[Rfam]
Description:
Rfam assigns this 98-nucleotide RNA sequence from Caenorhabditis japonica to the family "Small nucleolar RNA sn2991".

RNA sequence: AUUUCUAGAAGAUGGAAGAGCAGUAAAGGAUCUUUGAAGAGCAGAAUGCUCCGACUCGACAGAGACCAAAGCUGCGUCAGUGUCUCCAGAUGAAAAGU
Numbered sequence: 001a002u003u004u005c006u007a008g009a010a011g012a013u014g015g016a017a018g019a020g021c022a023g024u025a026a027a028g029g030a031u032c033u034u035u036g037a038a039g040a041g042c043a044g045a046a047u048g049c050u051c052c053g054a055c056u057c058g059a060c061a062g063a064g065a066c067c068a069a070a071g072c073u074g075c076g077u078c079a080g081u082g083u084c085u086c087c088a089g090a091u092g093a094a095a096a097g098u
Stems, first nucleotide, its partner, number of pairs: 001098004006093001
The family's RNA type in Rfam is C/D-box small nucleolar RNA.
The family's consensus secondary structure was predicted with WAR.